[Rfam]
RNA: Retron msr RNA
Organism: Aeromonas hydrophila
RNA sequence: GCUCUUUAGCUUGAGACGUUUUCGUCAAGUCGGGUGAUUAGCCAGACUCAAAUUUAUUGGGCGGU
Numbered sequence: 001g002c003u004c005u006u007u008a009g010c011u012u013g014a015g016a017c018g019u020u021u022u023c024g025u026c027a028a029g030u031c032g033g034g035u036g037a038u039u040a041g042c043c044a045g046a047c048u049c050a051a052a053u054u055u056a057u058u059g060g061g062c063g064g065u
Base pairs, nucleotide, nucleotide: 003064004063005061006060007059008058009057028048029047030046031045033043034042035041